Shown here is a 138-nucleotide sequence from Oxyruncus cristatus, a member of the family "Small nucleolar RNA SNORA8". The match comes from Rfam's covariance-model search (60 bits). Its Rfam clan is "SNORA8 clan". Rfam describes the family as follows. ACA8 is a member of the H/ACA class of snoRNA that guide the sites of modification of uridines to pseudouridines. The source organism's lineage runs through Eukaryota, Craniata, Euteleostomi, Sarcopterygii and Oxyruncus.
[Rfam]
RNA sequence: UGCUCUGUAUGACCCUUGCACCCAGCAGCAUUCUCCUGAUGAGGUGUUCAACAAGCUGUGCUACAGCAGUGCAGUUUUUGGCAUCUCUGGUUUUUGUUCUCCUGUGUUUAACAACCUGGUAUUUUUUCUGAAAAGGUU
Numbered sequence: 001u002g003c004u005c006u007g008u009a010u011g012a013c014c015c016u017u018g019c020a021c022c023c024a025g026c027a028g029c030a031u032u033c034u035c036c037u038g039a040u041g042a043g044g045u046g047u048u049c050a051a052c053a054a055g056c057u058g059u060g061c062u063a064c065a066g067c068a069g070u071g072c073a074g075u076u077u078u079u080g081g082c083a084u085c086u087c088u089g090g091u092u093u094u095u096g097u098u099c100u101c102c103u104g105u106g107u108u109u110a111a112c113a114a115c116c117u118g119g120u121a122u123u124u125u126u127u128c129u130g131a132a133a134a135g136g137u138u
Stems, first nucleotide, its partner, number of pairs: 002061002005058001007056001014055001016053001018047005024040001026038003065126002068123003072118003080108005